[Rfam]
RNA sequence: UGAUUCAUGUUUACCUUUGCACCAGGACACAAACGAGUUUCUUAUAACUCACAUUUUCCUGUGGGAAAGUCCCCGGACAUAUGGUAGAAAGUACCAAGAUGUAAAUUCUUAUCGCACUUCUUGAAUAUCCCCACUCAAUACAAGAUGAGGUAAAACUCAGAAUUAUAGUGGCGUUGAUACGAGAUUGCGAAUUGGUCACGUCACUUAAAGUUACGCGAGGAAUCUUUGGGAAGUAAUUUCUGAUAUUCAACACAAUGGGGCUCACAAAGCAAGAAUC
Numbered sequence: 001u002g003a004u005u006c007a008u009g010u011u012u013a014c015c016u017u018u019g020c021a022c023c024a025g026g027a028c029a030c031a032a033a034c035g036a037g038u039u040u041c042u043u044a045u046a047a048c049u050c051a052c053a054u055u056u057u058c059c060u061g062u063g064g065g066a067a068a069g070u071c072c073c074c075g076g077a078c079a080u081a082u083g084g085u086a087g088a089a090a091g092u093a094c095c096a097a098g099a100u101g102u103a104a105a106u107u108c109u110u111a112u113c114g115c116a117c118u119u120c121u122u123g124a125a126u127a128u129c130c131c132c133a134c135u136c137a138a139u140a141c142a143a144g145a146u147g148a149g150g151u152a153a154a155a156c157u158c159a160g161a162a163u164u165a166u167a168g169u170g171g172c173g174u175u176g177a178u179a180c181g182a183g184a185u186u187g188c189g190a191a192u193u194g195g196u197c198a199c200g201u202c203a204c205u206u207a208a209a210g211u212u213a214c215g216c217g218a219g220g221a222a223u224c225u226u227u228g229g230g231a232a233g234u235a236a237u238u239u240c241u242g243a244u245a246u247u248c249a250a251c252a253c254a255a256u257g258g259g260g261c262u263c264a265c266a267a268a269g270c271a272a273g274a275a276u277c
Base pairs, nucleotide, nucleotide: 002277003276004275005274006273008271009270011269012268015220016219017218018217019216020215023063024060025059026058027057035050036049037048038047039046068262069261071260072259073258074257083095084094085093086092096110097109098108099107100105112190113189114188119184120183121182122181123180127178128177129176131171132170133169134168154164155163157161222247226243227242228241229240230239231238232237
The record is a 277-nucleotide RNA from Clunio marinus, which matches "RNase MRP" in Rfam. By type it is a ribozyme. Lineage of the source: Eukaryota > Metazoa > Eumetazoa > Chironomoidea > Clunio.